[Rfam]
RNA: drum RNA
RNA sequence: AAGCAAUGAAAUGCCGUGCCUGUCAAGAGGUGACUGCAUGGAGCUUCUCACAGGGGGUUGCACAGAUUCCACAACUUGACUGAGGCAGCAUCCUGCUGUUGAAAGAAAAUGUGCUGC
Numbered sequence: 001a002a003g004c005a006a007u008g009a010a011a012u013g014c015c016g017u018g019c020c021u022g023u024c025a026a027g028a029g030g031u032g033a034c035u036g037c038a039u040g041g042a043g044c045u046u047c048u049c050a051c052a053g054g055g056g057g058u059u060g061c062a063c064a065g066a067u068u069c070c071a072c073a074a075c076u077u078g079a080c081u082g083a084g085g086c087a088g089c090a091u092c093c094u095g096c097u098g099u100u101g102a103a104a105g106a107a108a109a110u111g112u113g114c115u116g117c
Stems, first nucleotide, its partner, number of pairs: 001046004011039004016034002018031003023079004060114003084097004